[Rfam]
Shown here is a 58-nucleotide RNA from Streptomyces pseudogriseolus, a member of the family "msiK RNA". Lineage of the source: Bacteria > Bacillati > Kitasatosporales > Streptomycetaceae > Streptomyces pseudogriseolus. The family's consensus secondary structure is taken from published work.
RNA sequence: GGCACCACCUUCCUACUCGGAUCGUCCGGCACGUUCCUGCCGGUAGAAGGGGACCAUU
Numbered sequence: 001g002g003c004a005c006c007a008c009c010u011u012c013c014u015a016c017u018c019g020g021a022u023c024g025u026c027c028g029g030c031a032c033g034u035u036c037c038u039g040c041c042g043g044u045a046g047a048a049g050g051g052g053a054c055c056a057u058u
Stems, first nucleotide, its partner, number of pairs: 009050003013046003026043006